[Rfam]
RNA: mir-927 microRNA precursor family
RNA sequence: AAGCAGUAUUUUUGGUUUAGAAUUCCUACGCUUUACCGUUGCCAAGUUGUUGGGCAAAGCGUUUGGAUUCUAAAACGAAAACACU
Numbered sequence: 001a002a003g004c005a006g007u008a009u010u011u012u013u014g015g016u017u018u019a020g021a022a023u024u025c026c027u028a029c030g031c032u033u034u035a036c037c038g039u040u041g042c043c044a045a046g047u048u049g050u051u052g053g054g055c056a057a058a059g060c061g062u063u064u065g066g067a068u069u070c071u072a073a074a075a076c077g078a079a080a081a082c083a084c085u
Stems, first nucleotide, its partner, number of pairs: 010079003014076001016074006023067003028062007036054002